Rfam assigns this 75-nucleotide sequence from Streptomyces sp. FH025 to the family "ASpks TB sRNA".
By type it is an antisense RNA.
A search with the family's covariance model found it, with a score of 65 bits.
The family has 77 seed sequences and 9,052 matches in Rfam 15.1.
[Rfam]
RNA sequence: CUUCAGCGAGCCCAGCAGCACCGGCUCGCCGUCCUGCCGGUCCUGGCCGUAGGUGGCGAGGAUCGCCUCGGCCUC
Numbered sequence: 001c002u003u004c005a006g007c008g009a010g011c012c013c014a015g016c017a018g019c020a021c022c023g024g025c026u027c028g029c030c031g032u033c034c035u036g037c038c039g040g041u042c043c044u045g046g047c048c049g050u051a052g053g054u055g056g057c058g059a060g061g062a063u064c065g066c067c068u069c070g071g072c073c074u075c
Stems, first nucleotide, its partner, number of pairs: 014026003032070001038065002043060002047056003
Dot-bracket structure: .............(((.......))).....(.....((...((..(((....)))..))...))....).....